RNA sequence: CUUCACCGAACCCAGCCACAGCGGGUGGCCGGCAGGACGGUUCUGCCCGUAGGUGGCCAGCAACGCGUGCGCCUC
Numbered sequence: 001c002u003u004c005a006c007c008g009a010a011c012c013c014a015g016c017c018a019c020a021g022c023g024g025g026u027g028g029c030c031g032g033c034a035g036g037a038c039g040g041u042u043c044u045g046c047c048c049g050u051a052g053g054u055g056g057c058c059a060g061c062a063a064c065g066c067g068u069g070c071g072c073c074u075c
Base pairs, nucleotide, nucleotide: 014026016024017023032070033069038065039064043060044059045058047056048055049054